Notes
U7 small nuclear RNA: a 56-nucleotide sequence from Dissostichus mawsoni.
RNA sequence: AGGAAUCUUUGCUCUUUAGAUAUUUGUCUAGCAGGUUUCUCGUAAGAGAAGCCCCC
Numbered sequence: 001a002g003g004a005a006u007c008u009u010u011g012c013u014c015u016u017u018a019g020a021u022a023u024u025u026g027u028c029u030a031g032c033a034g035g036u037u038u039c040u041c042g043u044a045a046g047a048g049a050a051g052c053c054c055c056c
Stems, first nucleotide, its partner, number of pairs: 034053008
Pairs were carried over by alignment from the consensus structure, which was predicted with PFOLD. Rfam describes the family as follows. Animal histone pre-mRNAs are spliced by a different mechanism than nuclear pre-mRNAs and self-splicing introns. This processing involves the U7 snRNP, which contains only one RNA species: U7.